mir-2807 microRNA precursor family: an 84-nucleotide RNA sequence from Bombyx mori. The organism belongs to Bombyx, within Eukaryota. Rfam 15.1 lists 5,120 matches to the family in 8 species. It scores 79 bits against the family's covariance model. For this family Rfam cites "Novel microRNAs in silkworm (Bombyx mori)" (Cai et al., Funct Integr Genomics, 2010).
RNA sequence: UUAACUUAAAUUUGUAUGGAGUUGGACAGCUACCUUUCGUUUGCCGCUAGGGGCGCUGAUCCAACUCCAUACAAAUUUGAGUUA
Number, nucleotide and partner (000 for none) at each position: 001u000002u000003a000004a000005c000006u000007u000008a078009a077010a076011u075012u074013u073014g072015u071016a070017u000018g068019g000020a066021g065022u064023u063024g062025g061026a060027c000028a000029g057030c000031u000032a000033c000034c052035u051036u050037u000038c000039g047040u046041u000042u000043g000044c000045c000046g040047c039048u000049a000050g036051g035052g034053g000054c000055g000056c000057u029058g000059a000060u026061c025062c024063a023064a022065c021066u020067c000068c018069a000070u016071a015072c014073a013074a012075a011076u010077u009078u008079g000080a000081g000082u000083u000084a000